Rfam assigns this 45-nucleotide RNA from Lactuca sativa to the family "Plastid-psbA-3 3UTR RNA". Plastid psbA-3 is a non-coding RNA (ncRNA) present in plastids. It was identified in inverted repeat sequences in the 3 prime untranslate region (3UTR) of photosystem II quinone-binding protein (psbA). The base pairs follow the family's consensus structure, which was predicted with LocARNA. For this family Rfam cites "Retrograde signaling in plants: A critical review focusing on the GUN pathway and beyond" (Richter et al., Plant Commun, 2023). A search with the family's covariance model found it, with a score of 52 bits.

Nucleotides: 045
Base pairs, nucleotide, nucleotide: 001045002044003043004042005041006040007039008038009037010036015032016031017030018029019028020027
Number, partner (000 for none) and nucleotide at each position: 001045g002044a003043g004042c005041a006040a007039u008038a009037g010036c011000u012000u013000c014000c015032c016031u017030c018029u019028u020027g021000u022000u023000u024000u025000a026000u027020c028019a029018a030017g031016a032015g033000g034000g035000c036010g037009u038008u039007a040006u041005u042004g043003c044002u045001c